[Rfam]
RNA sequence: GGCCAGAUAAGGCGUUCACGCCGCAUCUGGCAUUUGGCUCUCGAUGCCCGAUGCGACGCUGGCGCGUCUUAUCAUGCC
Numbered sequence: 001g002g003c004c005a006g007a008u009a010a011g012g013c014g015u016u017c018a019c020g021c022c023g024c025a026u027c028u029g030g031c032a033u034u035u036g037g038c039u040c041u042c043g044a045u046g047c048c049c050g051a052u053g054c055g056a057c058g059c060u061g062g063c064g065c066g067u068c069u070u071a072u073c074a075u076g077c078c
Stems, first nucleotide, its partner, number of pairs: 002031007011022004046077002050073004055068005